Notes:
Eukaryotic large subunit ribosomal RNA: a 493-nucleotide part of an RNA from Batrachochytrium dendrobatidis. The source organism's lineage runs through Eukaryota, Opisthokonta, chytridiomyceta, Chytridiomycotina and Batrachochytrium dendrobatidis. Its family is annotated with structural constituent of ribosome and ribosome in the Gene Ontology. The family's consensus secondary structure is taken from published work.
RNA sequence: CCCUCCGAAGUUUCCCUCAGGAUAGCAGAAGCUCAGUAUCAGUUUUAUGAGGUAAAGCGAAUGAUUAGAGGCCUCGGGGAAGUAAAUUCCUUGACCUAUUCUCAAACUUUAAAUAUGUAAGACGUUGUGGUUACUUGAAUGAACCGCGACAGCGAAUGAGAGUUUCUAGUGGGCCAUUUUUGGUAAGCAGAACUGGCGAUGCGGGAUGAACCGAACGUCGAGUUAAGGUGCCAGAAUGCACGCUCAUUUAGACACCACAAAAGGUGUUGGUUCAUCUAGACAGCAGGACGGUGGCCAUGGAAGUUGGAACCCGCCAAGGAGUGUGUAACAACUCACCUGCCGAAUGAACUAGCCCUGAAAAUGGAUGGCGCUCAAGCGUGCUACCCAUACUCGACCGUCGGACCAAAUACAAUGGUUUGACGAGUAGGAGGGCGUGGAGGUUUGUGUGGAAGCUUUGGAUGUGAAUCCGAGUGAAACGGCCUCUAGUGCAGAU
Dot-bracket structure: ((((((....(.(((....))).)..(((((((.........(((((((.....(((....(((..(.(((..((((((.(.....).))))))))).)..)))..)).).....))))))).(((((((((.........)))))))))..........))))))).....((((.(((((.....))))).))))....(((......)))...(((((.(...(((......(.(..(((..................(((.((((((((((.......(((((.(((...((.........))...)))(...)(...((......)).).)))))...)))))))))))))...................)))..)))))...).)))))(((((((((.........)))))))))....))))))(.((((((((.((......((....(((....)))...))...))))))))))..).....